[Rfam]
RNA sequence: UCGUGCAGCCGGGGUGGUAGCGGUACCUUGUACCCACAAUCCGCUAUAGUGGGGGUGAUAUUACACGGAGGGCUUUAUUUUGUGAGGCUGCCCUCUGAAAGUGGCGUUGAUGUUCGGGUCUUACGCGACAGGAAUCCAUGAACCGUGUCAGGUCGGGAACGGAGCAGCACUAAGUGGAACCUUCUGGGUGCCGUAAGGGUGCCUGGGCUGAGUUAACUACAGAGGUAACGCUCAUGAAGUGAGUUCGAAGUGUAAUGCACGA
Numbered sequence: 001u002c003g004u005g006c007a008g009c010c011g012g013g014g015u016g017g018u019a020g021c022g023g024u025a026c027c028u029u030g031u032a033c034c035c036a037c038a039a040u041c042c043g044c045u046a047u048a049g050u051g052g053g054g055g056u057g058a059u060a061u062u063a064c065a066c067g068g069a070g071g072g073c074u075u076u077a078u079u080u081u082g083u084g085a086g087g088c089u090g091c092c093c094u095c096u097g098a099a100a101g102u103g104g105c106g107u108u109g110a111u112g113u114u115c116g117g118g119u120c121u122u123a124c125g126c127g128a129c130a131g132g133a134a135u136c137c138a139u140g141a142a143c144c145g146u147g148u149c150a151g152g153u154c155g156g157g158a159a160c161g162g163a164g165c166a167g168c169a170c171u172a173a174g175u176g177g178a179a180c181c182u183u184c185u186g187g188g189u190g191c192c193g194u195a196a197g198g199g200u201g202c203c204u205g206g207g208c209u210g211a212g213u214u215a216a217c218u219a220c221a222g223a224g225g226u227a228a229c230g231c232u233c234a235u236g237a238a239g240u241g242a243g244u245u246c247g248a249a250g251u252g253u254a255a256u257g258c259a260c261g262a
Stems, first nucleotide, its partner, number of pairs: 001262007008056003011029006018022001033053005061255006070246005077240010089227002093224005101217002103214003112208008120197006126188001129186005135178005145170004153162003
RNA: Bacterial large signal recognition particle RNA